RNA sequence: UCCCCGGCUAGGCAUGGAUUAGCUACCCUUGCCGAAAAGGCGGAACCCUUGCCGCCCGCCGGGGAGCGAAGGCUGCGCCU
Numbered sequence: 001u002c003c004c005c006g007g008c009u010a011g012g013c014a015u016g017g018a019u020u021a022g023c024u025a026c027c028c029u030u031g032c033c034g035a036a037a038a039g040g041c042g043g044a045a046c047c048c049u050u051g052c053c054g055c056c057c058g059c060c061g062g063g064g065a066g067c068g069a070a071g072g073c074u075g076c077g078c079c080u
Stems, first nucleotide, its partner, number of pairs: 001065008011033004039056005050077002
Dot-bracket structure: ((((((((..((((...............)))).....(((((......[[))))).))))))))..........]]...

Rfam assigns this 80-nucleotide RNA sequence to the family "int-alpA RNA". Rfam describes the family as follows. Acidobacteria (1 example), Planctomycetes (1 example), Proteobacteria. Pairs were carried over by alignment from the consensus structure, which is taken from published work. The family has 167 seed sequences and 577 matches in Rfam 15.1. The family's RNA type in Rfam is small RNA.